[Rfam]
RNA sequence: AAAAAGGAGCAAUAACCUCUUUCUUGUUCUAUCAAGAGGCGGUCUUGCUCCUUUUUUAUU
Numbered sequence: 001a002a003a004a005a006g007g008a009g010c011a012a013u014a015a016c017c018u019c020u021u022u023c024u025u026g027u028u029c030u031a032u033c034a035a036g037a038g039g040c041g042g043u044c045u046u047g048c049u050c051c052u053u054u055u056u057u058a059u060u
Base pairs, nucleotide, nucleotide: 001056002055003054004053005052006051007050008049009048010047011046012045014043016041018039019038022037023036024035025034026033
A member of the RNA family "Plastid-psbA-2 3UTR RNA" from Daucus carota, 60 nucleotides long. Pairs were carried over by alignment from the consensus structure, which was predicted with LocARNA. Plastid psbA-2 is a non-coding RNA (ncRNA) present in plastids. It was identified in inverted repeat sequences in the 3 prime untranslate region (3UTR) of photosystem II quinone-binding protein (psbA). For this family Rfam cites "Retrograde signaling in plants: A critical review focusing on the GUN pathway and beyond" (Richter et al., Plant Commun, 2023). The source organism's lineage runs through Eukaryota, Tracheophyta, Mesangiospermae, Apiales and Daucus carota. Its Rfam clan is "Plastid-psbA 3UTR RNA clan".